[Rfam]
RNA sequence: UACCGCUUGGUAAAAAUUCGCCACAAAGAGCAGGGUUUAGUAGUGUUUGUCGAAAGACCUUGAGGCUAAUAAGAAA
Dot-bracket structure: ((((....)))).......(((........(((((((.....(.......)....))))))).)))..........
Numbered sequence: 001u002a003c004c005g006c007u008u009g010g011u012a013a014a015a016a017u018u019c020g021c022c023a024c025a026a027a028g029a030g031c032a033g034g035g036u037u038u039a040g041u042a043g044u045g046u047u048u049g050u051c052g053a054a055a056g057a058c059c060u061u062g063a064g065g066c067u068a069a070u071a072a073g074a075a076a
Stems, first nucleotide, its partner, number of pairs: 001012004020066003031062007043051001
Rfam assigns this 76-nucleotide RNA sequence from Scopulibacillus darangshiensis to the family "RT-18 RNA". The match comes from Rfam's covariance-model search (68 bits). By type it is a small RNA. The base pairs follow the family's consensus structure, which is taken from published work.